Shown here is a 250-nucleotide sequence from Clostridium thermosuccinogenes, a member of the family "c-di-AMP riboswitch aptamer (ydaO/yuaA leader)". The source organism's lineage runs through Bacteria, Bacillati, Bacillota, Clostridia and Clostridium.

[Rfam]
RNA sequence: UGAACCUAUAUGCUGAAUUUCUGCAGCGAUGUUUCUGCAGAAUACGGGGGAACCAAUUUUUGGGGUGAAUCCAUACCAGGUGUCGGCAGGUGAUUGUCAGGUCUGAAUUAAUGUUACGCCUGAAUCCUUGAUUUGGGCUAAUAUUACAAACUUCAUAUCUCUGAUUUAAGUCUCUGACUGCCGGUAUGGUAGGGCAAAACUUUCUGUCCGAAUCCGUCAGCUAACCUCGGAAGCUUUGAAAGGGAGUGAU
Numbered sequence: 001u002g003a004a005c006c007u008a009u010a011u012g013c014u015g016a017a018u019u020u021c022u023g024c025a026g027c028g029a030u031g032u033u034u035c036u037g038c039a040g041a042a043u044a045c046g047g048g049g050g051a052a053c054c055a056a057u058u059u060u061u062g063g064g065g066u067g068a069a070u071c072c073a074u075a076c077c078a079g080g081u082g083u084c085g086g087c088a089g090g091u092g093a094u095u096g097u098c099a100g101g102u103c104u105g106a107a108u109u110a111a112u113g114u115u116a117c118g119c120c121u122g123a124a125u126c127c128u129u130g131a132u133u134u135g136g137g138c139u140a141a142u143a144u145u146a147c148a149a150a151c152u153u154c155a156u157a158u159c160u161c162u163g164a165u166u167u168a169a170g171u172c173u174c175u176g177a178c179u180g181c182c183g184g185u186a187u188g189g190u191a192g193g194g195c196a197a198a199a200c201u202u203u204c205u206g207u208c209c210g211a212a213u214c215c216g217u218c219a220g221c222u223a224a225c226c227u228c229g230g231a232a233g234c235u236u237u238g239a240a241a242g243g244g245a246g247u248g249a250u
Stems, first nucleotide, its partner, number of pairs: 012234003019042008045229005054062002063215003071189007192209004